[Rfam]
The family of this 150-nucleotide sequence from Galemys pyrenaicus is "U12 minor spliceosomal RNA". The family is grouped with related families in Rfam's "U2 clan". A search with the family's covariance model found it, with a score of 79 bits. By type it is a spliceosomal small nuclear RNA.

RNA sequence: AUGCCUAAAAAUUAUGAGUAAGGAAAAUAACAGUUUGGGGUGGUGACCGAAUCCUCACAGUUAAUGUGAGAUAAAAUUUCAAGGGGGUAAAGGUUCCCCCUAAGGUGACCCUCCACUACUUUGAGAGAUGUCUAGGAGUGGUUCCACCUG
Numbered sequence: 001a002u003g004c005c006u007a008a009a010a011a012u013u014a015u016g017a018g019u020a021a022g023g024a025a026a027a028u029a030a031c032a033g034u035u036u037g038g039g040g041u042g043g044u045g046a047c048c049g050a051a052u053c054c055u056c057a058c059a060g061u062u063a064a065u066g067u068g069a070g071a072u073a074a075a076a077u078u079u080c081a082a083g084g085g086g087g088u089a090a091a092g093g094u095u096c097c098c099c100c101u102a103a104g105g106u107g108a109c110c111c112u113c114c115a116c117u118a119c120u121u122u123g124a125g126a127g128a129u130g131u132c133u134a135g136g137a138g139u140g141g142u143u144c145c146a147c148c149u150g
Base pairs, nucleotide, nucleotide: 004023005022006021008019033052034051035050036049037048038047054070055069056068057067058066088150091149092148093147094146097141100136101135103133104132105131106130107129109127111125112124113123